[Rfam]
RNA sequence: GGUCACGAGCCCCGCCGUCUGGCCCGGCAGGCGGGGCAGCAACCCCGACGACCGCGGGGUGCUCCCGGGCACGACCAGGCCCGUCCGCGGGCAACCGUGUCGC
Numbered sequence: 001g002g003u004c005a006c007g008a009g010c011c012c013c014g015c016c017g018u019c020u021g022g023c024c025c026g027g028c029a030g031g032c033g034g035g036g037c038a039g040c041a042a043c044c045c046c047g048a049c050g051a052c053c054g055c056g057g058g059g060u061g062c063u064c065c066c067g068g069g070c071a072c073g074a075c076c077a078g079g080c081c082c083g084u085c086c087g088c089g090g091g092c093a094a095c096c097g098u099g100u101c102g103c
Base pairs, nucleotide, nucleotide: 001076002075003074004073009037010036011035012034013033014032015031020029021028038063039062040061043059044058045057046054047053079092080091081090082089083088
The record is a 103-nucleotide RNA sequence from Cellulomonas persica, which matches "SAM (S-adenosyl methionine) riboswitch aptamer" in Rfam. Pairs were carried over by alignment from the consensus structure, which is taken from published work. From the family's description: SAM-IV is a mRNA element that regulates gene expression via direct sensing of S-adenosylmethionine (SAM or AdoMet).